The family of this 81-nucleotide RNA from Pararobbsia silviterrae is "SucA RNA motif".
The organism belongs to Pararobbsia, within Bacteria.
The family's RNA type in Rfam is cis-regulatory element.
Pairs were carried over by alignment from the consensus structure, which is taken from published work.
For this family Rfam cites "Identification of 22 candidate structured RNAs in bacteria using the CMfinder comparative genomics pipeline" (Weinberg et al., Nucleic Acids Res, 2007).
The match comes from Rfam's covariance-model search (77 bits).
[Rfam]
RNA sequence: GCGCAUCCGCUAAUCGGUCAGGCCGUGCCGCGGAAGGUUGAGUAACCCGCGUUUCUCGAGAAACUCGAAGAAAGGUGAGCG
Dot-bracket structure: .(((.(((((....((((...))))....))))).((((....))))(((....((((((...)))).))....))).)))